Lysine riboswitch aptamer: a 174-nucleotide RNA from Clostridium cylindrosporum. NCBI's taxonomy places the organism under Bacteria, Bacillota, Clostridia, Clostridiaceae, Clostridium cylindrosporum. Pairs were carried over by alignment from the consensus structure, which is taken from published work. Rfam's curators write: Riboswitches are metabolite binding domains within certain messenger RNAs that serve as precision sensors for their corresponding targets. Allosteric rearrangement of mRNA structure is mediated by ligand binding, and this results in modulation of gene expression. This family includes riboswitches that sense lysine in a number of genes involved in lysine metabolism, including lysC. The match comes from Rfam's covariance-model search (126 bits).

RNA sequence: AGGUAAGAUAGAGGUAGCAGUAAUUAAGAGUAGUAUUGAUAAGGUAAGCACGAUGACUCAAUAUGAAAGGGAUUAUUGCCGAAGUAUAUUUCUAACGCUUUAAGGGAAUAUGCUGGUUUUGUACAUAAUAUGUGCAAGACUGUCACAAUAGUAUUGUGGAGAGCUAUCUUUGUG
Numbered sequence: 001a002g003g004u005a006a007g008a009u010a011g012a013g014g015u016a017g018c019a020g021u022a023a024u025u026a027a028g029a030g031u032a033g034u035a036u037u038g039a040u041a042a043g044g045u046a047a048g049c050a051c052g053a054u055g056a057c058u059c060a061a062u063a064u065g066a067a068a069g070g071g072a073u074u075a076u077u078g079c080c081g082a083a084g085u086a087u088a089u090u091u092c093u094a095a096c097g098c099u100u101u102a103a104g105g106g107a108a109u110a111u112g113c114u115g116g117u118u119u120u121g122u123a124c125a126u127a128a129u130a131u132g133u134g135c136a137a138g139a140c141u142g143u144c145a146c147a148a149u150a151g152u153a154u155u156g157u158g159g160a161g162a163g164c165u166a167u168c169u170u171u172g173u174g
Stems, first nucleotide, its partner, number of pairs: 006169006017079009033064007083114011115141011143159007